This 59-nucleotide RNA sequence belongs to the Rfam family "DUF2815 RNA". It is one of the family's seed sequences. The family's RNA type in Rfam is small RNA.
RNA sequence: CGGUAGAGAUUGGCACCGAUAAAGUCCAAUCAAUUUUAAGUUAAAAAGGAAGCAAGAUG
Numbered sequence: 001c002g003g004u005a006g007a008g009a010u011u012g013g014c015a016c017c018g019a020u021a022a023a024g025u026c027c028a029a030u031c032a033a034u035u036u037u038a039a040g041u042u043a044a045a046a047a048g049g050a051a052g053c054a055a056g057a058u059g
Stems, first nucleotide, its partner, number of pairs: 001018004009030005